RNA: Glycine riboswitch aptamer
Organism: Chromobacterium violaceum
RNA sequence: AUCAAGCCGAUUGGAGAGAGGCCGCCCCGCGCGGCCCACCGAAGGGGCAAGUGGCCUAAGGCCGCGCAACUCUCAGGUAAAAAGGACAAGGGGAGAGGC
Numbered sequence: 001a002u003c004a005a006g007c008c009g010a011u012u013g014g015a016g017a018g019a020g021g022c023c024g025c026c027c028c029g030c031g032c033g034g035c036c037c038a039c040c041g042a043a044g045g046g047g048c049a050a051g052u053g054g055c056c057u058a059a060g061g062c063c064g065c066g067c068a069a070c071u072c073u074c075a076g077g078u079a080a081a082a083a084g085g086a087c088a089a090g091g092g093g094a095g096a097g098g099c
Base pairs, nucleotide, nucleotide: 007093008092011089012088013087020036021035022034023033038078039077040076041074042073045072046071047070051065052064053063054062055061056060